[Rfam]
RNA sequence: CAGCACAAUGUCUCCCGGGCUAAUCCGAAGACUUCUUGAAGAAAAAGGCCCCAACACACGUGCUAAAACGACGCCGUUUAGUGUUGCAGUUCAAUCUUGAAUCUCUCCCACAGCUGAUCUGUGUCAAAUCAACGGCCACAUCC
Numbered sequence: 001c002a003g004c005a006c007a008a009u010g011u012c013u014c015c016c017g018g019g020c021u022a023a024u025c026c027g028a029a030g031a032c033u034u035c036u037u038g039a040a041g042a043a044a045a046a047g048g049c050c051c052c053a054a055c056a057c058a059c060g061u062g063c064u065a066a067a068a069c070g071a072c073g074c075c076g077u078u079u080a081g082u083g084u085u086g087c088a089g090u091u092c093a094a095u096c097u098u099g100a101a102u103c104u105c106u107c108c109c110a111c112a113g114c115u116g117a118u119c120u121g122u123g124u125c126a127a128a129u130c131a132a133c134g135g136c137c138a139c140a141u142c143c
Base pairs, nucleotide, nucleotide: 003063004062005061006060010057011056017051018050019049020048021047024042025041073136074135075134076133077132078131082126083125085123086122087121088120089119

Shown here is a 143-nucleotide RNA from Vitis rotundifolia, a member of the family "small nucleolar RNA snoR134". Rfam 15.1 lists 792 matches to the family in 228 species. Taxonomically the source falls in Vitis (Eukaryota, Viridiplantae, eudicotyledons, Vitaceae). The family's consensus secondary structure was predicted with RNAalifold. Its family is annotated with nucleolus and RNA processing in the Gene Ontology.